[Rfam]
RNA: MIR1428 microRNA precursor family
Organism: Oryza punctata
RNA sequence: ACAUUUUGCAAAUUCACAGGCCCUACGUUACGACAUGAACUCAGUACGCAAUGAUUUAUGCUGUGUAUUGAGGGCUUUUCGUAACAUAAGGCCGUGAACUUGCAAAGUGU
Numbered sequence: 001a002c003a004u005u006u007u008g009c010a011a012a013u014u015c016a017c018a019g020g021c022c023c024u025a026c027g028u029u030a031c032g033a034c035a036u037g038a039a040c041u042c043a044g045u046a047c048g049c050a051a052u053g054a055u056u057u058a059u060g061c062u063g064u065g066u067a068u069u070g071a072g073g074g075c076u077u078u079u080c081g082u083a084a085c086a087u088a089a090g091g092c093c094g095u096g097a098a099c100u101u102g103c104a105a106a107g108u109g110u
Stems, first nucleotide, its partner, number of pairs: 002109010013098004019093003024088002027085007035077001037075001040072002043069004048064003